RNA: 23S methyl RNA motif
Organism: Bombilactobacillus apium
RNA sequence: AUUUCGCGUUCUUUUAUCAGAUUUAAUAUUUGAUAAAAGCAUCCGAUAAGAGUUAACUAACGUAUUUCCUUGCUGCAUUUAGCCGAGGAAAUACGUUUUUUA
Numbered sequence: 001a002u003u004u005c006g007c008g009u010u011c012u013u014u015u016a017u018c019a020g021a022u023u024u025a026a027u028a029u030u031u032g033a034u035a036a037a038a039g040c041a042u043c044c045g046a047u048a049a050g051a052g053u054u055a056a057c058u059a060a061c062g063u064a065u066u067u068c069c070u071u072g073c074u075g076c077a078u079u080u081a082g083c084c085g086a087g088g089a090a091a092u093a094c095g096u097u098u099u100u101u102a
Base pairs, nucleotide, nucleotide: 002048004046005045006044008042009041011039012038013037014036015035016034017033018032019031059097060096061095062094063093064092065091066090067089068088069087070086071085072084075083076082